[Rfam]
RNA: c-di-AMP riboswitch aptamer (ydaO/yuaA leader)
RNA sequence: UGUCCGGAAACCGAAACCCACUCACACACGGCAGGAGCGGGGGACCCAGGUAAGGCGCCGUUCCGUCAUCCGGACCGGCUUGGGGUGAAGCCGCUCAUACCGCGGCCGGGCAGCUCCAGCCCGAACCCGACAGCUCACCUCGCAGGCGACGGAGAGGAAUU
Numbered sequence: 001u002g003u004c005c006g007g008a009a010a011c012c013g014a015a016a017c018c019c020a021c022u023c024a025c026a027c028a029c030g031g032c033a034g035g036a037g038c039g040g041g042g043g044a045c046c047c048a049g050g051u052a053a054g055g056c057g058c059c060g061u062u063c064c065g066u067c068a069u070c071c072g073g074a075c076c077g078g079c080u081u082g083g084g085g086u087g088a089a090g091c092c093g094c095u096c097a098u099a100c101c102g103c104g105g106c107c108g109g110g111c112a113g114c115u116c117c118a119g120c121c122c123g124a125a126c127c128c129g130a131c132a133g134c135u136c137a138c139c140u141c142g143c144a145g146g147c148g149a150c151g152g153a154g155a156g157g158a159a160u161u
Stems, first nucleotide, its partner, number of pairs: 011146002017035002037143006047082005083128003091105004108122004